Notes:
The record is a 90-nucleotide RNA, which matches "GA-cis RNA" in Rfam. The family's consensus secondary structure is taken from published work. It is annotated as a small RNA.
RNA sequence: GAGAGGAGGUCCCCAAAUGAUGCGGAGCAUCAUUUUUGCAUGGGACCGACGAAUUGCCGCCGAAGCGUAGCUGAGGGGGCAACACCAUAA
Number, nucleotide and partner (000 for none) at each position: 001g000002a000003g000004a000005g000006g000007a000008g047009g046010u045011c044012c043013c042014c000015a000016a000017a033018u032019g031020a030021u029022g028023c000024g000025g000026a000027g000028c022029a021030u020031c019032a018033u017034u000035u000036u000037u000038g000039c000040a000041u000042g013043g012044g011045a010046c009047c008048g000049a000050c000051g000052a000053a000054u000055u000056g080057c079058c078059g000060c076061c075062g000063a000064a072065g071066c000067g000068u000069a000070g000071c065072u064073g000074a000075g061076g060077g000078g058079g057080c056081a000082a000083c000084a000085c000086c000087a000088u000089a000090a000